[Rfam]
RNA: Actinobacteria sRNA Ms_IGR-5
RNA sequence: AUACGCGGAAAGGAGGUGGUCCACAUAAUGGUUAGCCAUAAGAGGACCAGCGAGGUGGUUGUCCGCUGACGACGCGGGCUGUUGUCUCGCAGUCGUUCGCGAGUACGAGACAACCACCGGGGCCCCUGGCAGCCGGAGGGCGUGACACCAGUCACCGCCUUUGGUCCAUCCGGCCCGCUCUCCCCGAGAGCGGAACGUCGCCCGGGGCCCUUCUUCG
Numbered sequence: 001a002u003a004c005g006c007g008g009a010a011a012g013g014a015g016g017u018g019g020u021c022c023a024c025a026u027a028a029u030g031g032u033u034a035g036c037c038a039u040a041a042g043a044g045g046a047c048c049a050g051c052g053a054g055g056u057g058g059u060u061g062u063c064c065g066c067u068g069a070c071g072a073c074g075c076g077g078g079c080u081g082u083u084g085u086c087u088c089g090c091a092g093u094c095g096u097u098c099g100c101g102a103g104u105a106c107g108a109g110a111c112a113a114c115c116a117c118c119g120g121g122g123c124c125c126c127u128g129g130c131a132g133c134c135g136g137a138g139g140g141c142g143u144g145a146c147a148c149c150a151g152u153c154a155c156c157g158c159c160u161u162u163g164g165u166c167c168a169u170c171c172g173g174c175c176c177g178c179u180c181u182c183c184c185c186g187a188g189a190g191c192g193g194a195a196c197g198u199c200g201c202c203c204g205g206g207g208c209c210c211u212u213c214u215u216c217g
Base pairs, nucleotide, nucleotide: 015063016062017061018060019059020058064101065100066099068097069096070095071094072093073092076088077087078086119211120210121209122208123207124206125205126204128202129201130200133193134192135191